The family of this 233-nucleotide RNA sequence from Medicago truncatula is "MIR2655 microRNA precursor family". The source organism's lineage runs through Eukaryota, Streptophytina, Magnoliopsida, fabids and Medicago. It scores 212 bits against the family's covariance model.
[Rfam]
RNA sequence: CCCAUAAGUAAUAAAAAGUCCGUUUAAGUCCCUUAACUUUAUUUAAAGUGUCGGUUUGGUCCUUUCUAUUAAUUUAAUUAAAAAAAUGUUAAGUUUAGGGACCAAACUAAUACUAAUUAAAUAAGUUAAGAAACCAAAAUUUAACGUUUUUUAAAUUAAAUUAAUAGAAGGGACCAAACCAUUACUUUAAAUAAAGUUAAGGGACUAAAUCGGACAUUUUAUUACUUAAAGGA
Numbered sequence: 001c002c003c004a005u006a007a008g009u010a011a012u013a014a015a016a017a018g019u020c021c022g023u024u025u026a027a028g029u030c031c032c033u034u035a036a037c038u039u040u041a042u043u044u045a046a047a048g049u050g051u052c053g054g055u056u057u058g059g060u061c062c063u064u065u066c067u068a069u070u071a072a073u074u075u076a077a078u079u080a081a082a083a084a085a086a087u088g089u090u091a092a093g094u095u096u097a098g099g100g101a102c103c104a105a106a107c108u109a110a111u112a113c114u115a116a117u118u119a120a121a122u123a124a125g126u127u128a129a130g131a132a133a134c135c136a137a138a139a140u141u142u143a144a145c146g147u148u149u150u151u152u153a154a155a156u157u158a159a160a161u162u163a164a165u166a167g168a169a170g171g172g173a174c175c176a177a178a179c180c181a182u183u184a185c186u187u188u189a190a191a192u193a194a195a196g197u198u199a200a201g202g203g204a205c206u207a208a209a210u211c212g213g214a215c216a217u218u219u220u221a222u223u224a225c226u227u228a229a230a231g232g233a
Base pairs, nucleotide, nucleotide: 002231005228006227007226008225024209025208027206028205029204031202032201033200034199035198036197037196038195039194040193041192042191043190045188046187047186